[Rfam]
RNA sequence: AGUUUAGAUUGUCGAUGAAAAACGGUAGGGUCUAAACGGUAAUUGCCGAUACUAUGGUUAGUGCGUUGGAGAUCGGAAAGGGAUGGCGAAGACAGAAUCCCUCGCAUGAAAAGUCUGUCGGGU
Numbered sequence: 001a002g003u004u005u006a007g008a009u010u011g012u013c014g015a016u017g018a019a020a021a022a023c024g025g026u027a028g029g030g031u032c033u034a035a036a037c038g039g040u041a042a043u044u045g046c047c048g049a050u051a052c053u054a055u056g057g058u059u060a061g062u063g064c065g066u067u068g069g070a071g072a073u074c075g076g077a078a079a080g081g082g083a084u085g086g087c088g089a090a091g092a093c094a095g096a097a098u099c100c101c102u103c104g105c106a107u108g109a110a111a112a113g114u115c116u117g118u119c120g121g122g123u
Base pairs, nucleotide, nucleotide: 002037003036004035005034006033007032008031009030010029025055026054027053028052046076047075048074049073050072063107065105066104079102080101081100082099083098084097091119092118093117094116095115096114
Dot-bracket structure: .(((((((((..............[[[[)))))))))........(((((.]]]].......{.{{.....)))))..((((((......[[[[[[)))))).}}.}......]]]]]]....
Overview:
This 123-nucleotide RNA sequence belongs to the Rfam family "Betaproteobacteria-1 RNA". The base pairs follow the family's consensus structure, which is taken from published work. It is annotated as a small RNA.